[Rfam]
RNA: Small nucleolar RNA SNORD35
RNA sequence: UGCAAAUGAUGUUCUUUCUCACGAUGGUCUUCCAAGCUCAAGAAGCUCUGACGACAAUGCCUUUGGCAAACACUGAUGCGGCGCU
Numbered sequence: 001u002g003c004a005a006a007u008g009a010u011g012u013u014c015u016u017u018c019u020c021a022c023g024a025u026g027g028u029c030u031u032c033c034a035a036g037c038u039c040a041a042g043a044a045g046c047u048c049u050g051a052c053g054a055c056a057a058u059g060c061c062u063u064u065g066g067c068a069a070a071c072a073c074u075g076a077u078g079c080g081g082c083g084c085u
Stems, first nucleotide, its partner, number of pairs: 001080004